[Rfam]
RNA sequence: UAGCUUAUCAGACUGAUGUUGACUGUUGAAUCUCAUGGCAACAGCAGUCGAUGGGCUGUC
Numbered sequence: 001u002a003g004c005u006u007a008u009c010a011g012a013c014u015g016a017u018g019u020u021g022a023c024u025g026u027u028g029a030a031u032c033u034c035a036u037g038g039c040a041a042c043a044g045c046a047g048u049c050g051a052u053g054g055g056c057u058g059u060c
Stems, first nucleotide, its partner, number of pairs: 001058008011049005017043005023037001
A member of the RNA family "mir-21 microRNA precursor family" from Tupaia belangeri, 60 nucleotides long. The literature on the family includes a 2006 paper in FEBS Lett by Xu et al., "Identification of microRNAs from different tissues of chicken embryo and adult chicken". NCBI's taxonomy places the organism under Eukaryota, Teleostomi, Sarcopterygii, Tupaia, Tupaia belangeri. The family has 41 seed sequences and 777 matches in Rfam 15.1. Pairs were carried over by alignment from the consensus structure, which was predicted with RNAalifold.